[Rfam]
Nucleotides: 172
Base pairs, nucleotide, nucleotide: 001172002171003170004169005168006167007166009164010163011162012161014159015158017156018155019154021152022151023150024149025148026147035142036141037140038139041136042135043134044133045132046131047130048129051126054123055122057120058119064113065112069108070107071106072105073104074103075102076101077100078099079098086097087096
Number, partner (000 for none) and nucleotide at each position: 001172a002171a003170c004169c005168a006167c007166a008000c009164u010163a011162u012161c013000a014159a015158u016000u017156a018155a019154u020000a021152g022151a023150u024149u025148c026147a027000c028000c029000c030000g031000c032000g033000a034000g035142a036141u037140g038139a039000c040000g041136u042135g043134g044133u045132u046131g047130u048129u049000u050000c051126a052000c053000c054123u055122a056000g057120g058119a059000c060000g061000a062000g063000a064113a065112c066000a067000u068000g069108g070107c071106a072105u073104c074103c075102u076101a077100u078099u079098a080000c081000u082000a083000g084000c085000c086097a087096u088000c089000g090000c091000a092000c093000g094000a095000a096087a097086u098079u099078a100077a101076u102075a103074g104073g105072a106071u107070g108069c109000c110000a111000a112065g113064u114000c115000c116000u117000u118000a119058u120057c121000c122055u123054a124000g125000a126051u127000g128000g129048a130047a131046u132045a133044a134043c135042c136041a137000c138000a139038u140037c141036a142035u143000c144000g145000u146000a147026u148025g149024a150023a151022u152021c153000c154019a155018u156017u157000u158015a159014u160000c161012g162011a163010u164009a165000g166007u167006g168005u169004g170003g171002u172001u